[Rfam]
RNA sequence: CCAAAGGCUCUUUUAAGAGCCACCCACGCUUUCAUAAGAAAGGCA
Numbered sequence: 001c002c003a004a005a006g007g008c009u010c011u012u013u014u015a016a017g018a019g020c021c022a023c024c025c026a027c028g029c030u031u032u033c034a035u036a037a038g039a040a041a042g043g044c045a
Stems, first nucleotide, its partner, number of pairs: 006021006
RNA: Histone 3' UTR stem-loop
Organism: Albula goreensis